[Rfam]
RNA: Small nucleolar RNA SNORA77
Organism: Thryothorus ludovicianus
RNA sequence: GCAGACUCACUCUGUGCUGAACUGCAGCCUUCAGUUCAGGUGCUUUUCUGUCUGCAAGAGUAAGAGCUCACAGGAGUGACCAUGGCCUUCCUUCCUGUGGAAGGCUGUUACAGUUGCUCUUGGGACAUGGCA
Numbered sequence: 001g002c003a004g005a006c007u008c009a010c011u012c013u014g015u016g017c018u019g020a021a022c023u024g025c026a027g028c029c030u031u032c033a034g035u036u037c038a039g040g041u042g043c044u045u046u047u048c049u050g051u052c053u054g055c056a057a058g059a060g061u062a063a064g065a066g067c068u069c070a071c072a073g074g075a076g077u078g079a080c081c082a083u084g085g086c087c088u089u090c091c092u093u094c095c096u097g098u099g100g101a102a103g104g105c106u107g108u109u110a111c112a113g114u115u116g117c118u119c120u121u122g123g124g125a126c127a128u129g130g131c132a
Stems, first nucleotide, its partner, number of pairs: 001055006014043003017039004022034003071122006079114002083110002087107001090104002